[Rfam]
RNA sequence: AGCGAGGCUAGGCCGGGGGGUUAGGGGUCCCCUGUAAGCGCAAAUCCCCUAUAUGGCGCGGCCGAAGCCCAGGAGGCGGCAAGACCGCCAGACAUCGGCCUGAGGGUUAAACAAUGAAGCCUCGUCCCACAGGGCCACCGGUGGCGAGGGUCCAGCUGGAGGGCUGGACCUAAUCGCCUUUGCUGCGGGAACGGGUCAGGCCCGGAAGGGAGCAGCCCUACCGCAGACGGAUGGUGCUUGUGGGUCAACGGGGUGGAGUCUAACCCUCAGAUCACCGGUGUCUGGUGGUCUUGUCCACUCCUGGGCGUGCCUCGCU
Numbered sequence: 001a002g003c004g005a006g007g008c009u010a011g012g013c014c015g016g017g018g019g020g021u022u023a024g025g026g027g028u029c030c031c032c033u034g035u036a037a038g039c040g041c042a043a044a045u046c047c048c049c050u051a052u053a054u055g056g057c058g059c060g061g062c063c064g065a066a067g068c069c070c071a072g073g074a075g076g077c078g079g080c081a082a083g084a085c086c087g088c089c090a091g092a093c094a095u096c097g098g099c100c101u102g103a104g105g106g107u108u109a110a111a112c113a114a115u116g117a118a119g120c121c122u123c124g125u126c127c128c129a130c131a132g133g134g135c136c137a138c139c140g141g142u143g144g145c146g147a148g149g150g151u152c153c154a155g156c157u158g159g160a161g162g163g164c165u166g167g168a169c170c171u172a173a174u175c176g177c178c179u180u181u182g183c184u185g186c187g188g189g190a191a192c193g194g195g196u197c198a199g200g201c202c203c204g205g206a207a208g209g210g211a212g213c214a215g216c217c218c219u220a221c222c223g224c225a226g227a228c229g230g231a232u233g234g235u236g237c238u239u240g241u242g243g244g245u246c247a248a249c250g251g252g253g254u255g256g257a258g259u260c261u262a263a264c265c266c267u268c269a270g271a272u273c274a275c276c277g278g279u280g281u282c283u284g285g286u287g288g289u290c291u292u293g294u295c296c297a298c299u300c301c302u303g304g305g306c307g308u309g310c311c312u313c314g315c316u
Stems, first nucleotide, its partner, number of pairs: 001316008011063004015033007038059004043054001067306009078295004083290003087286012100270010111259002119254007126244008134235004138230003141180001143178005148171010183226006193218004201210003

This 316-nucleotide RNA sequence from Methanothermus fervidus belongs to the Rfam family "Archaeal signal recognition particle RNA".
It scores 264 bits against the family's covariance model.
By type it is a non-coding RNA gene.
Its Rfam clan is "SRP clan".
Gene Ontology terms of the family: SRP-dependent cotranslational protein targeting to membrane, signal sequence recognition and signal recognition particle, plasma membrane targeting.